[Rfam]
RNA sequence: AUCGUGCUCCGGGACCCGGUGAAAAUCCGAACCGGCGGUGACAGUCCGCUAACUCUUCUGCUUGCAGGGGAGCCUGAUCGGUGAAAUUCCGAUACCGACAGUACAGUCUGGAUGGAAGGUAGCACGAG
Number, nucleotide and partner (000 for none) at each position: 001a000002u000003c126004g125005u124006g123007c122008u121009c119010c118011g000012g000013g000014a000015c000016c000017c029018g028019g027020u000021g000022a000023a000024a000025a000026u000027c019028c018029g017030a000031a107032c106033c097034g096035g049036c048037g047038g046039u000040g000041a000042c000043a000044g095045u094046c038047c037048g036049c035050u000051a000052a000053c072054u071055c000056u000057u000058c000059u000060g000061c000062u000063u000064g000065c000066a000067g000068g000069g000070g000071a054072g053073c000074c000075u000076g000077a093078u092079c091080g090081g089082u000083g000084a000085a000086a000087u000088u000089c081090c080091g079092a078093u077094a045095c044096c034097g033098a000099c110100a109101g108102u000103a000104c000105a000106g032107u031108c101109u100110g099111g000112a000113u000114g000115g000116a000117a000118g010119g009120u000121a008122g007123c006124a005125c004126g003127a000128g000

This 128-nucleotide RNA sequence from Rothia terrae belongs to the Rfam family "FMN riboswitch aptamer (RFN element)". The match comes from Rfam's covariance-model search (94 bits). Taxonomically the source falls in Rothia (Bacteria, Bacillati, Actinomycetota, Micrococcales).